[Rfam]
A member of the RNA family "Metazoan signal recognition particle RNA" from Opisthorchis felineus, 366 nucleotides long. The literature on the family includes a 2002 paper in Curr Opin Struct Biol by Wild et al., "Towards the structure of the mammalian signal recognition particle". The family has 91 seed sequences and 383,523 matches in Rfam 15.1. Rfam's curators write: The signal recognition particle (SRP) is a universally conserved ribonucleoprotein. It is involved in the co-translational targeting of proteins to membranes. The eukaryotic SRP consists of a 300-nucleotide 7S RNA and six proteins: SRPs 72, 68, 54, 19, 14, and 9. NCBI's taxonomy places the organism under Eukaryota, Metazoa, Eumetazoa, Spiralia, Opisthorchis. Rfam classes the family as a non-coding RNA gene.
RNA sequence: GCUGCGCGUGGUGGCGUGCGCUUGUAAUCUGGCUACUUGGAGGCCUGGUGGCGGAAUUUCGCGGGGUCGGGAGUUCUGGUGCUGGUUCGUGCAUAUUGAUCGGGCGUCCACGCUAAGCACGGCGACGGUAUGGGUGGUCAGUCGGAGGGCAGACUGUCCAGGUCGCCUAAGGAGGGGCGAACCGGCCCAGGGGGGAAAGGAAGCGGUCUUCACACGCCGGUCGGGCUGCCACUGGCUCGCCAUUCAUAGGCGCUAUUCCGCUAUUGCCCAGCAGGCAAAAGUCCCGGCGUGGUGCAGUAUCGGGAUAGCGCCUGUGACAAGACCUUUCAGUGUGCUGCUGUUUUCUCCUAGUUUCUGGUCACCUUU
Numbered sequence: 001g002c003u004g005c006g007c008g009u010g011g012u013g014g015c016g017u018g019c020g021c022u023u024g025u026a027a028u029c030u031g032g033c034u035a036c037u038u039g040g041a042g043g044c045c046u047g048g049u050g051g052c053g054g055a056a057u058u059u060c061g062c063g064g065g066g067u068c069g070g071g072a073g074u075u076c077u078g079g080u081g082c083u084g085g086u087u088c089g090u091g092c093a094u095a096u097u098g099a100u101c102g103g104g105c106g107u108c109c110a111c112g113c114u115a116a117g118c119a120c121g122g123c124g125a126c127g128g129u130a131u132g133g134g135u136g137g138u139c140a141g142u143c144g145g146a147g148g149g150c151a152g153a154c155u156g157u158c159c160a161g162g163u164c165g166c167c168u169a170a171g172g173a174g175g176g177g178c179g180a181a182c183c184g185g186c187c188c189a190g191g192g193g194g195g196a197a198a199g200g201a202a203g204c205g206g207u208c209u210u211c212a213c214a215c216g217c218c219g220g221u222c223g224g225g226c227u228g229c230c231a232c233u234g235g236c237u238c239g240c241c242a243u244u245c246a247u248a249g250g251c252g253c254u255a256u257u258c259c260g261c262u263a264u265u266g267c268c269c270a271g272c273a274g275g276c277a278a279a280a281g282u283c284c285c286g287g288c289g290u291g292g293u294g295c296a297g298u299a300u301c302g303g304g305a306u307a308g309c310g311c312c313u314g315u316g317a318c319a320a321g322a323c324c325u326u327u328c329a330g331u332g333u334g335c336u337g338c339u340g341u342u343u344u345c346u347c348c349u350a351g352u353u354u355c356u357g358g359u360c361a362c363c364u365u366u
Stems, first nucleotide, its partner, number of pairs: 001044003004023001006021005028041003047363006053355001055354002058351002061348001063345004068340002071338001076337001078335001080332006089323001092321001101314007108304002111302002114299002117295004122290003126165004131160009141150003166172002174285005185276003192269003
Dot-bracket structure: ((((.(((((......))))).)....(((........))))))..(((((((.((.((.(.((((.((.(....(.(.((((((...(..(........(((((((((.((.((.((((.(((.((((.(((((((((.(((....))).))))))))).))))((...)).(((((......(((....(((........................................................................)))....)))....)))))..))).))))..)).))))...)))))))......).)...))))))..).)))).))))..).)).)))..))))))...